[Rfam]
RNA sequence: UCUGAUCUGUGAUGAUGCCUAAAUGAUGAGGACUGCUGGAUGAAGCUUGCGGAUAUGGGACUGAGAUCAGCC
Dot-bracket structure: .((((.............................................................))))..
Numbered sequence: 001u002c003u004g005a006u007c008u009g010u011g012a013u014g015a016u017g018c019c020u021a022a023a024u025g026a027u028g029a030g031g032a033c034u035g036c037u038g039g040a041u042g043a044a045g046c047u048u049g050c051g052g053a054u055a056u057g058g059g060a061c062u063g064a065g066a067u068c069a070g071c072c
Stems, first nucleotide, its partner, number of pairs: 002070004

This 72-nucleotide sequence from Tetraodon nigroviridis belongs to the Rfam family "Small nucleolar RNA SNORD99". The base pairs follow the family's consensus structure, which was predicted with RNAalifold. Gene Ontology terms of the family: nucleolus and RNA processing. Its Rfam clan is "SNORD58 clan".